RNA sequence: UGGCUGUGACGACCAAGAACUUUGUUUCUCGAUGCUGACUUGAUUUAAUCAAGGACCAAACUUUUGAGUUUUGAUGACCUUUGUGCGUGUCUGAGCCAC
Numbered sequence: 001u002g003g004c005u006g007u008g009a010c011g012a013c014c015a016a017g018a019a020c021u022u023u024g025u026u027u028c029u030c031g032a033u034g035c036u037g038a039c040u041u042g043a044u045u046u047a048a049u050c051a052a053g054g055a056c057c058a059a060a061c062u063u064u065u066g067a068g069u070u071u072u073g074a075u076g077a078c079c080u081u082u083g084u085g086c087g088u089g090u091c092u093g094a095g096c097c098a099c
Base pairs, nucleotide, nucleotide: 001098002097003096004095
About this RNA: Rfam assigns this 99-nucleotide RNA from Zizania palustris to the family "small nucleolar RNA snoR126". The base pairs follow the family's consensus structure, which was predicted with RNAalifold. Gene Ontology terms of the family: nucleolus and RNA processing. Lineage of the source: Eukaryota > Viridiplantae > commelinids > Zizaniinae > Zizania. It scores 74 bits against the family's covariance model. A reference for the family is Chen and Wu (2009), "Mining small RNA sequencing data: a new approach to identify small nucleolar RNAs in Arabidopsis", Nucleic Acids Res.